[Rfam]
Rfam assigns this 150-nucleotide sequence from Paslahepevirus balayani to the family "Hepatitis E virus cis-reactive element". Rfam describes the family as follows. This family represents a cis-reactive element from Hepatitis E virus which is thought to be essential for 'some step in gene expression'. The source organism's lineage runs through Viruses, Riboviria, Orthornavirae, Alsuviricetes and Paslahepevirus. The literature on the family includes a 2005 paper in J Virol by Graff et al., "The open reading frame 3 gene of hepatitis E virus contains a cis-reactive element and encodes a protein required for infection of macaques". It is annotated as a cis-regulatory element.

RNA sequence: GAGUCUGUUAAGCCUAUACUUGACCUUACACACUCAAUUAUGCACCGGUCUGAAUGAAUAACAUGUGGUUUGCUGCGCCCAUGGGUUCGCCACCAUGCGCCCUAGGCCUCUUUUGCUGUUGUUCCUCUUGUUUCUGCCUAUGUUGCCCGC
Numbered sequence: 001g002a003g004u005c006u007g008u009u010a011a012g013c014c015u016a017u018a019c020u021u022g023a024c025c026u027u028a029c030a031c032a033c034u035c036a037a038u039u040a041u042g043c044a045c046c047g048g049u050c051u052g053a054a055u056g057a058a059u060a061a062c063a064u065g066u067g068g069u070u071u072g073c074u075g076c077g078c079c080c081a082u083g084g085g086u087u088c089g090c091c092a093c094c095a096u097g098c099g100c101c102c103u104a105g106g107c108c109u110c111u112u113u114u115g116c117u118g119u120u121g122u123u124c125c126u127c128u129u130g131u132u133u134c135u136g137c138c139u140a141u142g143u144u145g146c147c148c149g150c
Stems, first nucleotide, its partner, number of pairs: 003029002007025001008023001010021003046149003050145001052143001054141003060132004065127001072122002075116003081111001083109005089100002